Description: A member of the RNA family "Retron msr RNA" from Escherichia coli, 81 nucleotides long. For this family Rfam cites "msDNA-St85, a multicopy single-stranded DNA isolated from Salmonella enterica serovar Typhimurium LT2 with the genomic analysis of its retron" (Ahmed and Shimamoto, FEMS Microbiol Lett, 2003). The family's RNA type in Rfam is non-coding RNA gene. From the family's description: Retron elements are found in a wide range of mainly Gram-negative bacteria. The sequence is in the family's curated seed alignment. NCBI's taxonomy places the organism under Bacteria, Gammaproteobacteria, Enterobacterales, Enterobacteriaceae, Escherichia.
RNA sequence: GCUCUUUAGCGUUUUAUGGAUUUACCACCUGAUUGGUCAAAUCUAGUUGGGCGUUGCGCAAACUCUAAUUUAUUGAUUACA
Numbered sequence: 001g002c003u004c005u006u007u008a009g010c011g012u013u014u015u016a017u018g019g020a021u022u023u024a025c026c027a028c029c030u031g032a033u034u035g036g037u038c039a040a041a042u043c044u045a046g047u048u049g050g051g052c053g054u055u056g057c058g059c060a061a062a063c064u065c066u067a068a069u070u071u072a073u074u075g076a077u078u079a080c081a
Base pairs, nucleotide, nucleotide: 006076007075008074009073045064046063047062048061051059052058053057